A member of the RNA family "Alphaproteobacteria transfer-messenger RNA" from Pelagibacterales bacterium SAG-MED19, 301 nucleotides long.
[Rfam]
RNA sequence: UUUAUUGAAUCUCUUUUAAUUGUUUUUAUAUUAAUACUGUUGGCUUGCCAACUACGACGAUAAACGAAUUUCGUAAUAACCAUUGCGGACGUGGGGGCAGUACCCACCACCUCCACCAUUUACAACUUAUGGGGGUGAAAUAGAUUCGACGGGUGACUAAAAGUUAUUCUUUCGUUCGGAAUUGUUCCACCGUAACGGGCUAAAUUAUAAUUGCUAACGAAAGUUACGCACUUGCUGCCUAAUUAACUUUGUUAAUUAAGUAGACGGGGUUUGGGGCACCUGGCAACAGAACGCCCCUAUA
Numbered sequence: 001u002u003u004a005u006u007g008a009a010u011c012u013c014u015u016u017u018a019a020u021u022g023u024u025u026u027u028a029u030a031u032u033a034a035u036a037c038u039g040u041u042g043g044c045u046u047g048c049c050a051a052c053u054a055c056g057a058c059g060a061u062a063a064a065c066g067a068a069u070u071u072c073g074u075a076a077u078a079a080c081c082a083u084u085g086c087g088g089a090c091g092u093g094g095g096g097g098c099a100g101u102a103c104c105c106a107c108c109a110c111c112u113c114c115a116c117c118a119u120u121u122a123c124a125a126c127u128u129a130u131g132g133g134g135g136u137g138a139a140a141u142a143g144a145u146u147c148g149a150c151g152g153g154u155g156a157c158u159a160a161a162a163g164u165u166a167u168u169c170u171u172u173c174g175u176u177c178g179g180a181a182u183u184g185u186u187c188c189a190c191c192g193u194a195a196c197g198g199g200c201u202a203a204a205u206u207a208u209a210a211u212u213g214c215u216a217a218c219g220a221a222a223g224u225u226a227c228g229c230a231c232u233u234g235c236u237g238c239c240u241a242a243u244u245a246a247c248u249u250u251g252u253u254a255a256u257u258a259a260g261u262a263g264a265c266g267g268g269g270u271u272u273g274g275g276g277c278a279c280c281u282g283g284c285a286a287c288a289g290a291a292c293g294c295c296c297c298u299a300u301a
Stems, first nucleotide, its partner, number of pairs: 039052005056176005066169004072163001081155003086151002091107005108137007177192003182202001184200001186199003267281004273298004277293001
NCBI's taxonomy places the organism under Bacteria, Pseudomonadati, Pseudomonadota, Alphaproteobacteria, Candidatus Pelagibacterales. The family's RNA type in Rfam is non-coding RNA gene. Pairs were carried over by alignment from the consensus structure, which is taken from published work.